[Rfam]
RNA sequence: AGGAGGAACAACCCCAGUGGCGGUGGCCAGCUCUGGAGCCCUGGAGUCAGCUCCCACAGUAACUUCGGAGCUGUCCAUCUGCAGGUCCUGGAGGCUCCGGGGCAGG
Numbered sequence: 001a002g003g004a005g006g007a008a009c010a011a012c013c014c015c016a017g018u019g020g021c022g023g024u025g026g027c028c029a030g031c032u033c034u035g036g037a038g039c040c041c042u043g044g045a046g047u048c049a050g051c052u053c054c055c056a057c058a059g060u061a062a063c064u065u066c067g068g069a070g071c072u073g074u075c076c077a078u079c080u081g082c083a084g085g086u087c088c089u090g091g092a093g094g095c096u097c098c099g100g101g102g103c104a105g106g
Base pairs, nucleotide, nucleotide: 002098003097004096005095009090010089013085014084019079020078022076023075025074029072030071031070032069033068034067035066036065037064041059042058043057
This 106-nucleotide RNA sequence from Canis lupus belongs to the Rfam family "mir-8834 microRNA precursor family". The family's consensus secondary structure was predicted with RNAalifold. Gene Ontology terms of the family: RISC complex and miRNA-mediated post-transcriptional gene silencing.